Record summary
The family of this 246-nucleotide RNA sequence from Miscanthus lutarioriparius is "MIR6217 microRNA precursor family". The base pairs follow the family's consensus structure, which was predicted with RNAalifold. A search with the family's covariance model found it, with a score of 157 bits. The organism belongs to Miscanthus, within Eukaryota.
RNA sequence: UGGCUAUAAAAUAACGUAUUCUGUAGCCACUUUGAGUUACAAUAAUUACUAUGUUAAUUUACGAGAUUAUGUUAAUUUACGAGAUUAUAGUAACUUCUUACUAAGUGGUUUAUUAUAACGUUAUGAAAAAUAUCUCCAUGCGUUAUAGUAACCCAACUAUCGUAAAUAUGUAUUGAUAUUAUCGUAAAUUAGUAUAUAAAAUUAUUAUAAAUGGAGGUGGCUACAGAAUAACUUAUUUUGUAGCUA
Numbered sequence: 001u002g003g004c005u006a007u008a009a010a011a012u013a014a015c016g017u018a019u020u021c022u023g024u025a026g027c028c029a030c031u032u033u034g035a036g037u038u039a040c041a042a043u044a045a046u047u048a049c050u051a052u053g054u055u056a057a058u059u060u061a062c063g064a065g066a067u068u069a070u071g072u073u074a075a076u077u078u079a080c081g082a083g084a085u086u087a088u089a090g091u092a093a094c095u096u097c098u099u100a101c102u103a104a105g106u107g108g109u110u111u112a113u114u115a116u117a118a119c120g121u122u123a124u125g126a127a128a129a130a131u132a133u134c135u136c137c138a139u140g141c142g143u144u145a146u147a148g149u150a151a152c153c154c155a156a157c158u159a160u161c162g163u164a165a166a167u168a169u170g171u172a173u174u175g176a177u178a179u180u181a182u183c184g185u186a187a188a189u190u191a192g193u194a195u196a197u198a199a200a201a202u203u204a205u206u207a208u209a210a211a212u213g214g215a216g217g218u219g220g221c222u223a224c225a226g227a228a229u230a231a232c233u234u235a236u237u238u239u240g241u242a243g244c245u246a
Base pairs, nucleotide, nucleotide: 001246002245003244004243005242006241007240008239009238010237011236012235013234014233017230018229019228020227021226022225023224024223025222026221027220028219029218030217031216032215033214037210038209039208041206042205043204044203045202046201047200050196051195052194053193054192055191056190057189058188059187060186061185062184065183066182067181069179070178071177072175074173098165099164100163101162105160106159107158108157109156110155111150112149113148114147115146116145117144118143119142120141121140125135